[Rfam]
RNA sequence: GGAGACACUUCUGGAGAGACCGCCCUUUUAUCGGAGGCGCCGAAGGAUUCAUUAUCUCAGGCAGCAGGACAGGAGCAGCUUC
Numbered sequence: 001g002g003a004g005a006c007a008c009u010u011c012u013g014g015a016g017a018g019a020c021c022g023c024c025c026u027u028u029u030a031u032c033g034g035a036g037g038c039g040c041c042g043a044a045g046g047a048u049u050c051a052u053u054a055u056c057u058c059a060g061g062c063a064g065c066a067g068g069a070c071a072g073g074a075g076c077a078g079c080u081u082c
Base pairs, nucleotide, nucleotide: 008075009074010073011072012071013070020037021036023034039062040061041060042058043057046056047055048054